[Rfam]
RNA sequence: UCGAAGCUCCAUCUACAAAUGGAUAAUACUUCCGUCUUAGUGUAUACGAGUUCUUGAAAAAUUAAAUAAAAAUAAAUAAAAAAGGAGCAAUAAAAUAAUCACUUUCUUGUUCUCUCAAGAGAGCGGUAUUGCUCCUUUUUU
Numbered sequence: 001u002c003g004a005a006g007c008u009c010c011a012u013c014u015a016c017a018a019a020u021g022g023a024u025a026a027u028a029c030u031u032c033c034g035u036c037u038u039a040g041u042g043u044a045u046a047c048g049a050g051u052u053c054u055u056g057a058a059a060a061a062u063u064a065a066a067u068a069a070a071a072a073u074a075a076a077u078a079a080a081a082a083a084g085g086a087g088c089a090a091u092a093a094a095a096u097a098a099u100c101a102c103u104u105u106c107u108u109g110u111u112c113u114c115u116c117a118a119g120a121g122a123g124c125g126g127u128a129u130u131g132c133u134c135c136u137u138u139u140u141u
Stems, first nucleotide, its partner, number of pairs: 008023005081138012104121005
Dot-bracket structure: .......(((((......))))).........................................................((((((((((((...........(((((........))))).....))))))))))))...
RNA: Plastid-psbA-1 3UTR RNA